[Rfam]
A member of the RNA family "SAH (S-adenosyl-L-homocysteine) riboswitch aptamer" from Actinoplanes sp. SE50/110, 77 nucleotides long.
The organism belongs to Actinoplanes, within Bacteria.
A reference for the family is Wang et al. (2008), "Riboswitches that sense S-adenosylhomocysteine and activate genes involved in coenzyme recycling", Mol Cell.
RNA sequence: CGGGUCGAGGGGCGCUGCGACGGAUGUUUCAUCCGCCACGCUCGGCCUGUCCCUGGUCGCAAGGGCGCCUCCCGCCG
Dot-bracket structure: .(((((((............((((((...))))))......))))))).............................
Numbered sequence: 001c002g003g004g005u006c007g008a009g010g011g012g013c014g015c016u017g018c019g020a021c022g023g024a025u026g027u028u029u030c031a032u033c034c035g036c037c038a039c040g041c042u043c044g045g046c047c048u049g050u051c052c053c054u055g056g057u058c059g060c061a062a063g064g065g066c067g068c069c070u071c072c073c074g075c076c077g
Stems, first nucleotide, its partner, number of pairs: 002048007021035006